The family of this 110-nucleotide RNA sequence from Glycine max is "MIR1520 microRNA precursor family". It scores 56 bits against the family's covariance model. Gene Ontology terms of the family: miRNA-mediated post-transcriptional gene silencing and RISC complex.

[Rfam]
RNA sequence: CUUUUAUUGGAUAUUGACCGCCACAUAUCGCGCGUUUAUUGAAUGUUAAUUUCGUGCACCUAAUUAACGUCAACCUUCAAUAAAAUCGCGACACGUGACGGUCAACGUUC
Numbered sequence: 001c002u003u004u005u006a007u008u009g010g011a012u013a014u015u016g017a018c019c020g021c022c023a024c025a026u027a028u029c030g031c032g033c034g035u036u037u038a039u040u041g042a043a044u045g046u047u048a049a050u051u052u053c054g055u056g057c058a059c060c061u062a063a064u065u066a067a068c069g070u071c072a073a074c075c076u077u078c079a080a081u082a083a084a085a086u087c088g089c090g091a092c093a094c095g096u097g098a099c100g101g102u103c104a105a106c107g108u109u110c
Base pairs, nucleotide, nucleotide: 020099022097023096026093029090030089031088035084036083038081039080040079